[Rfam]
Nucleotides: 402
Stems, first nucleotide, its partner, number of pairs: 001398004006393005011387001012343007020044002023041006049385003053382005058224004065279004070220005075089005090104001091102004105215002110213002112209003127154002129150009162180006182204001183202008228300004259291006271283004307326008
Number, partner (000 for none) and nucleotide at each position: 001398c002397g003396a004395g005000c006393c007392g008391g009390c010389c011387g012343g013342a014341c015340g016339g017338c018337c019000g020044c021043g022000u023041g024040g025039g026038g027037a028036u029000c030000a031000u032000g033000a034000c035000g036028a037027u038026c039025u040024c041023c042000c043021c044020g045000a046000g047000g048000a049385a050384c051383g052000u053382c054381c055380g056379g057378g058224c059223u060222c061221c062000a063000c064000a065279g066278g067277g068276c069000a070220a071219g072218g073217u074216g075089g076088u077087g078086g079085g080000u081000a082000a083000c084000a085079c086078c087077c088076a089075c090104c091102c092101g093100g094099g095000g096000u097000g098000a099094c100093c101092c102091g103000c104090g105215g106214g107000a108000c109000a110213g111212u112209g113208c114207c115000a116000c117000a118000g119000a120000a121000a122000g123000c124000a125000g126000a127154c128153c129150g130149c131148c132147g133146g134145a135144g136143g137142c138000u139000u140000c141000g142137g143136c144135c145134u146133c147132c148131g149130g150129u151000a152000a153128g154127g155000g156000u157000g158000a159000a160000a161000c162180g163179g164178u165177g166176g167175u168000g169000u170000a171000a172000g173000a174000g175167a176166c177165c178164a179163c180162c181000a182204g183202c184201c185200u186199c187198c188197g189196a190195g191000g192000u193000g194000a195190c196189u197188c198187g199186g200185a201184g202183g203000g204182c205000u206000c207114g208113g209112u210000a211000a212111a213110c214106c215105c216074c217073a218072c219071c220070u221061g222060g223059a224058g225000c226000a227000a228300g229299g230298u231297c232000a233000a234000g235000a236000g237000g238000g239000g240000g241000c242000a243000u244000c245000c246000c247000u248000g249000a250000u251000g252000c253000c254000c255000c256000u257000g258000c259291g260290c261289g262288g263287a264286c265000g266000a267000u268000c269000g270000a271283g272282g273281g274280c275000u276068g277067c278066c279065c280274g281273c282272c283271c284000g285000a286264g287263u288262c289261c290260g291259c292000g293000g294000g295000u296000a297231g298230a299229c300228c301000g302000c303000a304000c305000g306000a307326g308325g309324c310323u311322g312321c313320c314319g315000g316000c317000a318000a319314c320313g321312g322311c323310a324309g325308c326307c327000c328000u329000a330000g331000a332000u333000g334000g335000a336000u337018g338017g339016c340015c341014g342013u343012c344000u345000c346000c347000c348000c349000c350000c351000g352000g353000c354000c355000c356000g357000c358000a359000a360000g361000g362000a363000c364000c365000g366000g367000g368000g369000g370000u371000g372000a373000c374000a375000g376000a377000a378057c379056c380055c381054g382053g383051c384050g385049u386000a387011c388000a389010g390009g391008c392007c393006g394000a395004c396003u397002c398001g399000u400000c401000c402000g

Shown here is a 402-nucleotide RNA from Streptomyces lydicus, a member of the family "Bacterial RNase P class A".
The match comes from Rfam's covariance-model search (299 bits).
The literature on the family includes a 1998 paper in Annu Rev Biochem by Frank and Pace, "Ribonuclease P: unity and diversity in a tRNA processing ribozyme".